[Rfam]
Nucleotides: 074
Base pairs, nucleotide, nucleotide: 001073002072003071004070
Number, partner (000 for none) and nucleotide at each position: 001073c002072u003071g004070c005000g006000a007000g008000g009000a010000u011000g012000a013000u014000c015000u016000g017000g018000a019000c020000u021000u022000u023000g024000a025000a026000u027000u028000c029000u030000c031000u032000c033000u034000u035000u036000c037000u038000g039000a040000u041000g042000c043000a044000u045000c046000a047000g048000u049000g050000g051000a052000g053000a054000a055000a056000g057000c058000c059000u060000u061000a062000c063000g064000u065000c066000c067000u068000g069000a070004g071003c072002g073001g074000c